[Rfam]
RNA: mir-4446 microRNA precursor family
RNA sequence: AGUGGCUCUGGUCCAUUUCCCUGCCAUUCCCUUGGCUUCAAUUUACUCCCAGGGCUGGCAGUGAGAUGGGUUAAGGCUCACA
Number, nucleotide and partner (000 for none) at each position: 001a000002g081003u080004g079005g077006c076007u075008c000009u073010g072011g071012u070013c069014c068015a067016u066017u065018u064019c063020c000021c061022u060023g059024c058025c057026a056027u000028u000029c000030c054031c053032u052033u051034g050035g049036c000037u000038u000039c000040a000041a000042u000043u000044u000045a000046c000047u000048c000049c035050c034051a033052g032053g031054g030055c000056u026057g025058g024059c023060a022061g021062u000063g019064a018065g017066a016067u015068g014069g013070g012071u011072u010073a009074a000075g007076g006077c005078u000079c004080a003081c002082a000